RNA: DUF805b RNA
RNA sequence: AUGGAGAACGCUGAAAAUCCAUGAAAGAGUAGGCA
Numbered sequence: 001a002u003g004g005a006g007a008a009c010g011c012u013g014a015a016a017a018u019c020c021a022u023g024a025a026a027g028a029g030u031a032g033g034c035a
Base pairs, nucleotide, nucleotide: 002021003020004019005018010034011033012032